[Rfam]
RNA sequence: CGAGUAAGCCAGACAAUCGCUGCGCAGUAUUGCGGAGAGGAAAGUCCGAGCUCCAUAGGGCAAGGGUGCUGGGUAACUCCCAGUGAAGGCGACUUUAAGGAAAGUGCAACAGAGAUAUACCGCUAAAGGUAUUCUAGUAGUUUAGCUUGCUAAAUAUCUGAAUAUACUAGCAAGGAUGGAAAGGCGAGGUAAGAGCUCACCAGCGCAAUGGUGACUUUGCGGCUAUGUAAACCCCACCUGGAGCAAGAUCGAAUAGGAGAACAUCAUGAGACUGCCCGUCUCGUUCUCGGGUGUAUCGCUUGAGCUUAUUGGUAACAAUAGGCCUAGAUAGAUGAUUGUCUAAUACAGAACUCGGCUUAUAGGCUUAAUCGUACC
Numbered sequence: 001c002g003a004g005u006a007a008g009c010c011a012g013a014c015a016a017u018c019g020c021u022g023c024g025c026a027g028u029a030u031u032g033c034g035g036a037g038a039g040g041a042a043a044g045u046c047c048g049a050g051c052u053c054c055a056u057a058g059g060g061c062a063a064g065g066g067u068g069c070u071g072g073g074u075a076a077c078u079c080c081c082a083g084u085g086a087a088g089g090c091g092a093c094u095u096u097a098a099g100g101a102a103a104g105u106g107c108a109a110c111a112g113a114g115a116u117a118u119a120c121c122g123c124u125a126a127a128g129g130u131a132u133u134c135u136a137g138u139a140g141u142u143u144a145g146c147u148u149g150c151u152a153a154a155u156a157u158c159u160g161a162a163u164a165u166a167c168u169a170g171c172a173a174g175g176a177u178g179g180a181a182a183g184g185c186g187a188g189g190u191a192a193g194a195g196c197u198c199a200c201c202a203g204c205g206c207a208a209u210g211g212u213g214a215c216u217u218u219g220c221g222g223c224u225a226u227g228u229a230a231a232c233c234c235c236a237c238c239u240g241g242a243g244c245a246a247g248a249u250c251g252a253a254u255a256g257g258a259g260a261a262c263a264u265c266a267u268g269a270g271a272c273u274g275c276c277c278g279u280c281u282c283g284u285u286c287u288c289g290g291g292u293g294u295a296u297c298g299c300u301u302g303a304g305c306u307u308a309u310u311g312g313u314a315a316c317a318a319u320a321g322g323c324c325u326a327g328a329u330a331g332a333u334g335a336u337u338g339u340c341u342a343a344u345a346c347a348g349a350a351c352u353c354g355g356c357u358u359a360u361a362g363g364c365u366u367a368a369u370c371g372u373a374c375c
Base pairs, nucleotide, nucleotide: 001371002370003369005367006366007365008364009363010362011360012340013339014338015337016336017335018334020037021036023034024033025032026031042358043357044356046355047354048353049352050351051243052242053241054240058277059276060275061274063239064238065237067236068235069083070082071081072080073079084098085096086095087094088093099234100233104232105231106228107227108226120175121174122171123170124169128165183201184200186198187197188196203223204221205220206219207218208217210215247297248296249295257288258287259286260285261284262283268282269281270280271279272278304323305322306321307320308319309318310317311316

Overview
A member of the RNA family "Bacterial RNase P class A" from Clostridium tagluense, 375 nucleotides long. Its family is annotated with tRNA processing, dimeric ribonuclease P complex and ribonuclease P activity in the Gene Ontology. For this family Rfam cites "Ribonuclease P: unity and diversity in a tRNA processing ribozyme" (Frank and Pace, Annu Rev Biochem, 1998). By type it is a ribozyme.